[Rfam]
RNA sequence: GCUGCGGCUAGGGACGCGACCCGAAAGCCGGACCCCUGCCGGUUGCCGCAGCUUCUAAACGGGGG
Numbered sequence: 001g002c003u004g005c006g007g008c009u010a011g012g013g014a015c016g017c018g019a020c021c022c023g024a025a026a027g028c029c030g031g032a033c034c035c036c037u038g039c040c041g042g043u044u045g046c047c048g049c050a051g052c053u054u055c056u057a058a059a060c061g062g063g064g065g
Stems, first nucleotide, its partner, number of pairs: 001052008011022003028042004034065004

Description: A member of the RNA family "int-alpA RNA" from Paraburkholderia acidisoli, 65 nucleotides long. By type it is a small RNA. The family's consensus secondary structure is taken from published work.